[Rfam]
RNA: Manganese Mn2+ riboswitch aptamer (yybP-ykoY)
RNA sequence: UUGUCCGUCUUUGGGGAGUAGCCGGCUUCCAGCCAUUGGAAGCGCUCAUGUCAACACGCUUGGUUCUCUGGACCAUGGCAUGAGCAACCGAAAUGUAUUCUGGUUGGCAAGACCAUCGAUGUAACGCCGCGACCGGUCGGGCUCGGCGUCACAUCGCAUGUUCCUGUCCCGACCCGA
Numbered sequence: 001u002u003g004u005c006c007g008u009c010u011u012u013g014g015g016g017a018g019u020a021g022c023c024g025g026c027u028u029c030c031a032g033c034c035a036u037u038g039g040a041a042g043c044g045c046u047c048a049u050g051u052c053a054a055c056a057c058g059c060u061u062g063g064u065u066c067u068c069u070g071g072a073c074c075a076u077g078g079c080a081u082g083a084g085c086a087a088c089c090g091a092a093a094u095g096u097a098u099u100c101u102g103g104u105u106g107g108c109a110a111g112a113c114c115a116u117c118g119a120u121g122u123a124a125c126g127c128c129g130c131g132a133c134c135g136g137u138c139g140g141g142c143u144c145g146g147c148g149u150c151a152c153a154u155c156g157c158a159u160g161u162u163c164c165u166g167u168c169c170c171g172a173c174c175c176g177a
Stems, first nucleotide, its partner, number of pairs: 025043003044085010061075005